[Rfam]
T-box leader: a 386-nucleotide RNA from Staphylococcus saccharolyticus. The match comes from Rfam's covariance-model search (94 bits). From the family's description: Uncharged tRNA acts as the effector for transcription antitermination of genes in the T-box leader family. T-boxes are found upstream of many aminoacyl-tRNA synthetase genes and some amino acid biosynthetic genes usually in Gram-positive bacteria. It is annotated as a cis-regulatory leader. Pairs were carried over by alignment from the consensus structure, which is taken from published work.

RNA sequence: UUACACACCGUAAAAAGGAAAGUAGAACUUACACUGCUAAUACAGAGAGUCUUCACUAGCUGAGAGAAGGCAUUGAAAGAAAGUUUGAAAAUGGCCUUGGAGUGUUGAUGCCAAUAUGAGGUAUCAACGGGUUCGCCCGUUAUAGCGAUACAGUAUUAACAUUGAUGUUAAAUGGCGUACUGGGAAAUGGUACAAGCCACAUUUUAUCGUUAAUACUCAUUUAUUCACUACAGAUUAAAUGAGUUUUUUAGUUACUCAAUACUAAUAACGAUAGAGUUUUAAAAUUUUCAGUUCACAUUAACAUUGUGGCGUACUGAUAGAGGUUACUUUAGCAAUAAAGUGACAAACAAAGGUGGUACCGCGAAGUUGAAGCUUUCAUCCUUUAA
Numbered sequence: 001u002u003a004c005a006c007a008c009c010g011u012a013a014a015a016a017g018g019a020a021a022g023u024a025g026a027a028c029u030u031a032c033a034c035u036g037c038u039a040a041u042a043c044a045g046a047g048a049g050u051c052u053u054c055a056c057u058a059g060c061u062g063a064g065a066g067a068a069g070g071c072a073u074u075g076a077a078a079g080a081a082a083g084u085u086u087g088a089a090a091a092u093g094g095c096c097u098u099g100g101a102g103u104g105u106u107g108a109u110g111c112c113a114a115u116a117u118g119a120g121g122u123a124u125c126a127a128c129g130g131g132u133u134c135g136c137c138c139g140u141u142a143u144a145g146c147g148a149u150a151c152a153g154u155a156u157u158a159a160c161a162u163u164g165a166u167g168u169u170a171a172a173u174g175g176c177g178u179a180c181u182g183g184g185a186a187a188u189g190g191u192a193c194a195a196g197c198c199a200c201a202u203u204u205u206a207u208c209g210u211u212a213a214u215a216c217u218c219a220u221u222u223a224u225u226c227a228c229u230a231c232a233g234a235u236u237a238a239a240u241g242a243g244u245u246u247u248u249u250a251g252u253u254a255c256u257c258a259a260u261a262c263u264a265a266u267a268a269c270g271a272u273a274g275a276g277u278u279u280u281a282a283a284a285u286u287u288u289c290a291g292u293u294c295a296c297a298u299u300a301a302c303a304u305u306g307u308g309g310c311g312u313a314c315u316g317a318u319a320g321a322g323g324u325u326a327c328u329u330u331a332g333c334a335a336u337a338a339a340g341u342g343a344c345a346a347a348c349a350a351a352g353g354u355g356g357u358a359c360c361g362c363g364a365a366g367u368u369g370a371a372g373c374u375u376u377c378a379u380c381c382u383u384u385a386a
Stems, first nucleotide, its partner, number of pairs: 007103002015098004025086006038075003049071006106126007128139003323344007350383004361379001363377003